[Rfam]
RNA sequence: UCGAAAGGACGGGAUCUACUCCACGCAACCAUAGAUGCCGUCUGACAAAAAGGAGGAUAAGCUUCCGUCGGCUCACGGUGCGGCAGUGUGGAGAUCUGCCGCAAGGCAGAAACCAGAUGGAUUCCGCGAGGAUCCUUCCAGCCGGAGGAUCCGGAGCUUCAAAAAAUGGCA
Numbered sequence: 001u002c003g004a005a006a007g008g009a010c011g012g013g014a015u016c017u018a019c020u021c022c023a024c025g026c027a028a029c030c031a032u033a034g035a036u037g038c039c040g041u042c043u044g045a046c047a048a049a050a051a052g053g054a055g056g057a058u059a060a061g062c063u064u065c066c067g068u069c070g071g072c073u074c075a076c077g078g079u080g081c082g083g084c085a086g087u088g089u090g091g092a093g094a095u096c097u098g099c100c101g102c103a104a105g106g107c108a109g110a111a112a113c114c115a116g117a118u119g120g121a122u123u124c125c126g127c128g129a130g131g132a133u134c135c136u137u138c139c140a141g142c143c144g145g146a147g148g149a150u151c152c153g154g155a156g157c158u159u160c161a162a163a164a165a166a167u168g169g170c171a
Stems, first nucleotide, its partner, number of pairs: 008042005014036005065078004070158005079103008088095002106127002109124003113120002130152008